[Rfam]
RNA sequence: GUUCAAUUUAAAGCGCCUGUGCAAGUGAUGAGGUAUUGUGUUAAUGAUUUAAGAUUUAUAUCAGAAAUCUUAAUAGGCAAGGAUAUCGAAACUUGUAGACGAGGAGGAUAGUUAUCGAACCAUCGGCGGAUGCUAUCCCGGAUGUGGCUCAUUCGUGAACUUAUUAAGGAAAACAUUAGGGUAACCUAGUGCACAAAGUUAAUAAGUUAGCCAAAU
Numbered sequence: 001g002u003u004c005a006a007u008u009u010a011a012a013g014c015g016c017c018u019g020u021g022c023a024a025g026u027g028a029u030g031a032g033g034u035a036u037u038g039u040g041u042u043a044a045u046g047a048u049u050u051a052a053g054a055u056u057u058a059u060a061u062c063a064g065a066a067a068u069c070u071u072a073a074u075a076g077g078c079a080a081g082g083a084u085a086u087c088g089a090a091a092c093u094u095g096u097a098g099a100c101g102a103g104g105a106g107g108a109u110a111g112u113u114a115u116c117g118a119a120c121c122a123u124c125g126g127c128g129g130a131u132g133c134u135a136u137c138c139c140g141g142a143u144g145u146g147g148c149u150c151a152u153u154c155g156u157g158a159a160c161u162u163a164u165u166a167a168g169g170a171a172a173a174c175a176u177u178a179g180g181g182u183a184a185c186c187u188a189g190u191g192c193a194c195a196a197a198g199u200u201a202a203u204a205a206g207u208u209a210g211c212c213a214a215a216u
Stems, first nucleotide, its partner, number of pairs: 020097007029088003106138005115126004139155006160206007174191007